The record is a 74-nucleotide sequence from Oscillibacter sp. 1-3, which matches "Pistol ribozyme" in Rfam. On this family, see Weinberg et al., Nat Chem Biol 2015: "New classes of self-cleaving ribozymes revealed by comparative genomics analysis". The organism belongs to Oscillibacter, within Bacteria.
RNA sequence: GCUCGUCUGGGCGAGGGUAAAUAGUAAUUAGGCCCAGAGCGUCCCGGCUCCUGGUUCGCCGGUCGGGGGUUUAG
Numbered sequence: 001g002c003u004c005g006u007c008u009g010g011g012c013g014a015g016g017g018u019a020a021a022u023a024g025u026a027a028u029u030a031g032g033c034c035c036a037g038a039g040c041g042u043c044c045c046g047g048c049u050c051c052u053g054g055u056u057c058g059c060c061g062g063u064c065g066g067g068g069g070u071u072u073a074g
Stems, first nucleotide, its partner, number of pairs: 002015003006038006025073003032040001042068008